Shown here is a 370-nucleotide RNA from Caldicoprobacter faecalis, a member of the family "Bacterial RNase P class A". Ribonuclease P (RNase P) is a ubiquitous endoribonuclease, found in archaea, bacteria and eukarya as well as chloroplasts and mitochondria. Its best characterised activity is the generation of mature 5'-ends of tRNAs by cleaving the 5'-leader elements of precursor-tRNAs. Cellular RNase Ps are ribonucleoproteins. RNA from bacterial RNase Ps retains its catalytic activity in the absence of the protein subunit, i.e. it is a ribozyme. Isolated eukaryotic and archaeal RNase P RNA has not been shown to retain its catalytic function, but is still essential for the catalytic activity of the holoenzyme. Although the archaeal and eukaryotic holoenzyme s have a much greater protein content than the bacterial ones, the RNA cores from all the three lineages are homologous -- helices corresponding to P1, P2, P3, P4, and P10/11 are common to all cellular RNase P RNAs. Yet, there is considerable sequence variation, particularly among the eukaryotic RNAs. Identified in Yersinia as Ysr151/RnpB. By type it is a ribozyme. Its Rfam clan is "RNaseP clan".
[Rfam]
RNA sequence: UGAGUAAGUCGGGCGAUCGCGGCUGUACACCAUAAAAGUGCAGCUGAGGAAAGUCCGAGCUCCACAGGGCAGGGUGCUGGGUAACACCCAGUGGAGGCGACUCCAAGGAAAGUGCAACAGAAAUAGACCGCCUGGUAUUUGACGUUGUACGUCGAAUGCUGGGUAAGGGUGGAAAGGUGAGGUAAGAGCUCACCAGCAAUCCAGGCGACUGGAUUGGCUCUGUAAACCCCACCUGGAGUAAGACCGAAUAGGGGACAUUAUGUGGUGGCCCGCCACGUCCCGGGUAAGGUCGCUUGAGCCUAUCUGGCAACAGUAGGCCUAGAUAGAUGAUCGCCCUCGACAGAACUCGGCUUACAGACUUGCUCACAUG
Numbered sequence: 001u002g003a004g005u006a007a008g009u010c011g012g013g014c015g016a017u018c019g020c021g022g023c024u025g026u027a028c029a030c031c032a033u034a035a036a037a038g039u040g041c042a043g044c045u046g047a048g049g050a051a052a053g054u055c056c057g058a059g060c061u062c063c064a065c066a067g068g069g070c071a072g073g074g075u076g077c078u079g080g081g082u083a084a085c086a087c088c089c090a091g092u093g094g095a096g097g098c099g100a101c102u103c104c105a106a107g108g109a110a111a112g113u114g115c116a117a118c119a120g121a122a123a124u125a126g127a128c129c130g131c132c133u134g135g136u137a138u139u140u141g142a143c144g145u146u147g148u149a150c151g152u153c154g155a156a157u158g159c160u161g162g163g164u165a166a167g168g169g170u171g172g173a174a175a176g177g178u179g180a181g182g183u184a185a186g187a188g189c190u191c192a193c194c195a196g197c198a199a200u201c202c203a204g205g206c207g208a209c210u211g212g213a214u215u216g217g218c219u220c221u222g223u224a225a226a227c228c229c230c231a232c233c234u235g236g237a238g239u240a241a242g243a244c245c246g247a248a249u250a251g252g253g254g255a256c257a258u259u260a261u262g263u264g265g266u267g268g269c270c271c272g273c274c275a276c277g278u279c280c281c282g283g284g285u286a287a288g289g290u291c292g293c294u295u296g297a298g299c300c301u302a303u304c305u306g307g308c309a310a311c312a313g314u315a316g317g318c319c320u321a322g323a324u325a326g327a328u329g330a331u332c333g334c335c336c337u338c339g340a341c342a343g344a345a346c347u348c349g350g351c352u353u354a355c356a357g358a359c360u361u362g363c364u365c366a367c368a369u370g
Stems, first nucleotide, its partner, number of pairs: 001366010011355001012335007020046009051353003055350005060238004067271004072234005077091005092106001093104004107229002112227002114223003128168002130164015176194006196218001197216008242291004252281005262276005298318005304313003
The match comes from Rfam's covariance-model search (324 bits).